[Rfam]
RNA sequence: AUUUUUUGUGAUUAAGCUAUAGCGUUUAUGCAUUUAUAAAUGCAUAAACGCUAUAGCUUAAUCACAAAAAAU
Numbered sequence: 001a002u003u004u005u006u007u008g009u010g011a012u013u014a015a016g017c018u019a020u021a022g023c024g025u026u027u028a029u030g031c032a033u034u035u036a037u038a039a040a041u042g043c044a045u046a047a048a049c050g051c052u053a054u055a056g057c058u059u060a061a062u063c064a065c066a067a068a069a070a071a072u
Stems, first nucleotide, its partner, number of pairs: 003070005009064003013060002017056005025048006

Source information:
The family of this 72-nucleotide RNA sequence from Sinocyclocheilus anshuiensis is "mir-965 microRNA precursor family". The base pairs follow the family's consensus structure, which was predicted with RNAalifold. Its family is annotated with RISC complex and miRNA-mediated post-transcriptional gene silencing in the Gene Ontology.